This 182-nucleotide RNA from Paenibacillus sp. GSMTC-2017 belongs to the Rfam family "Lysine riboswitch aptamer".
The source organism's lineage runs through Bacteria, Bacillati, Bacilli, Paenibacillaceae and Paenibacillus.
Gene Ontology term of the family: lysine biosynthetic process.
RNA sequence: UUGUGAGGUAGAGGCGCGGUAUUUAACAGUUUGUAGCAGAGCUUGAGAGGCGAUGAAGCUACGAAGAAGGAAAUUCCGCCGAAGUGGGUAAUACUCUCCGUAUUAUUUGCUGGGCUUGCAGUUAAUAACUGUAAGACUGUCUCAAUGAAUCUCCCAGUUCAUUGAGUUGUGCUAUCUCCAAA
Numbered sequence: 001u002u003g004u005g006a007g008g009u010a011g012a013g014g015c016g017c018g019g020u021a022u023u024u025a026a027c028a029g030u031u032u033g034u035a036g037c038a039g040a041g042c043u044u045g046a047g048a049g050g051c052g053a054u055g056a057a058g059c060u061a062c063g064a065a066g067a068a069g070g071a072a073a074u075u076c077c078g079c080c081g082a083a084g085u086g087g088g089u090a091a092u093a094c095u096c097u098c099c100g101u102a103u104u105a106u107u108u109g110c111u112g113g114g115c116u117u118g119c120a121g122u123u124a125a126u127a128a129c130u131g132u133a134a135g136a137c138u139g140u141c142u143c144a145a146u147g148a149a150u151c152u153c154c155c156a157g158u159u160c161a162u163u164g165a166g167u168u169g170u171g172c173u174a175u176c177u178c179c180a181a182a
Base pairs, nucleotide, nucleotide: 006177007176008175009174010173011172016079017078018077019076021074022073023072024071031064032063033062034061035060036059037058083111084110085109086108087107088106089105090104091103092102093101094100112138113137115135116134117133118132119131120130121129122128141166142165143164144163145162146161147160148159149158

Rfam describes the family as follows. Riboswitches are metabolite binding domains within certain messenger RNAs that serve as precision sensors for their corresponding targets.